RNA sequence: CACAGAGUAGAAACUUGAGCGUUGCUCUAGGCUUAGUGCCUGCCAAACGGGGAGUUGUUGGCAGAACGAAUGGAAUUAUCCUACGGUUCAGGUUUCGCAUCCCGCUGUU
Numbered sequence: 001c002a003c004a005g006a007g008u009a010g011a012a013a014c015u016u017g018a019g020c021g022u023u024g025c026u027c028u029a030g031g032c033u034u035a036g037u038g039c040c041u042g043c044c045a046a047a048c049g050g051g052g053a054g055u056u057g058u059u060g061g062c063a064g065a066a067c068g069a070a071u072g073g074a075a076u077u078a079u080c081c082u083a084c085g086g087u088u089c090a091g092g093u094u095u096c097g098c099a100u101c102c103c104g105c106u107g108u109u
Base pairs, nucleotide, nucleotide: 002108003107004106005105010096011095012094013093014092015091016090017089018088019087020085021084022083036067037066040064041063042062043061044060045059046058050102051101052100054098072081073080074079